This 102-nucleotide RNA sequence from Arenimonas sp. belongs to the Rfam family "TPP riboswitch aptamer (THI element)".
Vitamin B(1) in its active form thiamin pyrophosphate (TPP) is an essential coenzyme that is synthesised by coupling of pyrimidine and thiazole moieties in bacteria. The previously detected thiamin-regulatory element, thi box was extended, resulting in a new, highly conserved RNA secondary structure, the THI element, which is widely distributed in eubacteria and also occurs in some archaea. Analysis of operon structures identified a large number of new candidate thiamin-regulated genes, mostly transporters, in various prokaryotic organisms. The THI element is a riboswitch that directly binds to TPP to regulate gene expression through a variety of mechanisms in archaea, bacteria and eukaryotes. through a variety of mechanisms in archaea, bacteria and eukaryotes. Tandem TPP riboswitches have been reported where both TPP riboswitches respond independently to TPP. The structure of TPP riboswitch has been reported for Escherichia coli and Arabidopsis thaliana.

RNA sequence: GCCUUGAAGCGGGGGUGCCAAGCCUGAUUGGGCUGGGCUGAGAAAUACCCUUCGAACCUGAUCCGGUUCAGACCGGCGUAGGGAAGCUUCGAAGCUCGCCUU
Numbered sequence: 001g002c003c004u005u006g007a008a009g010c011g012g013g014g015g016u017g018c019c020a021a022g023c024c025u026g027a028u029u030g031g032g033c034u035g036g037g038c039u040g041a042g043a044a045a046u047a048c049c050c051u052u053c054g055a056a057c058c059u060g061a062u063c064c065g066g067u068u069c070a071g072a073c074c075g076g077c078g079u080a081g082g083g084a085a086g087c088u089u090c091g092a093a094g095c096u097c098g099c100c101u102u
Stems, first nucleotide, its partner, number of pairs: 006090005011051004016045001017038003021034004057082004063076004